[Rfam]
RNA sequence: AAGGAGGAUUUAGAUUAUAAUACAGCUAUUAAGAACUGUGUUGUCCUUCCCACUGCUCAAAAUAAAGUUGUUUCUUAACUACACCUCUCUGUUAUACUCCUAUAGCAGCCAGGGAUGGUUGGUCACAUACAU
Numbered sequence: 001a002a003g004g005a006g007g008a009u010u011u012a013g014a015u016u017a018u019a020a021u022a023c024a025g026c027u028a029u030u031a032a033g034a035a036c037u038g039u040g041u042u043g044u045c046c047u048u049c050c051c052a053c054u055g056c057u058c059a060a061a062a063u064a065a066a067g068u069u070g071u072u073u074c075u076u077a078a079c080u081a082c083a084c085c086u087c088u089c090u091g092u093u094a095u096a097c098u099c100c101u102a103u104a105g106c107a108g109c110c111a112g113g114g115a116u117g118g119u120u121g122g123u124c125a126c127a128u129a130c131a132u
Base pairs, nucleotide, nucleotide: 003056005054006053017044018043019042020041021040022039023038024037025036084113085112086111089108090107091106092105
Dot-bracket structure: ..(.((..........(((((((((..........)))))))))........)).)...........................(((..((((............))))..)))...................
The record is a 132-nucleotide sequence from Mustela putorius, which matches "Small nucleolar RNA SNORA63" in Rfam. It scores 102 bits against the family's covariance model. From the family's description: E3 belongs to the H/ACA class of snoRNAs and is involved in the processing of eukaryotic pre-rRNA and has regions of complementarity to 18S rRNA. E3 is encoded in introns in the gene for protein synthesis initiation factor 4AII. A reference for the family is Mishra and Eliceiri (1997), "Three small nucleolar RNAs that are involved in ribosomal RNA precursor processing", Proc Natl Acad Sci U S A. Taxonomically the source falls in Mustela putorius (Eukaryota, Opisthokonta, Deuterostomia, Euteleostomi). The family has 8 seed sequences and 1,279 matches in Rfam 15.1.